RNA sequence: AGGCCCAGAGAGGCAGGAUCUGAUCCGCAGCCUCUGUGGCAGCUGUUGAUCAGCUGUUGCCUCUCUAUUUCUCUCUG
Numbered sequence: 001a002g003g004c005c006c007a008g009a010g011a012g013g014c015a016g017g018a019u020c021u022g023a024u025c026c027g028c029a030g031c032c033u034c035u036g037u038g039g040c041a042g043c044u045g046u047u048g049a050u051c052a053g054c055u056g057u058u059g060c061c062u063c064u065c066u067a068u069u070u071c072u073c074u075c076u077g
Base pairs, nucleotide, nucleotide: 007066008065009064010063011062012061013060014059015058016057018055020053021052022051023050024049025048028045029044030043031042

mir-574 microRNA precursor family: a 77-nucleotide sequence from Myotis davidii. Rfam links the family to the GO terms RISC complex and miRNA-mediated post-transcriptional gene silencing. The family's consensus secondary structure was predicted with RNAalifold. For this family Rfam cites "Patterns of known and novel small RNAs in human cervical cancer" (Lui et al., Cancer Res, 2007). Lineage of the source: Eukaryota > Euteleostomi > Amniota > Eutheria > Myotis. Clan: mir-574 microRNA precursor clan. It scores 86 bits against the family's covariance model.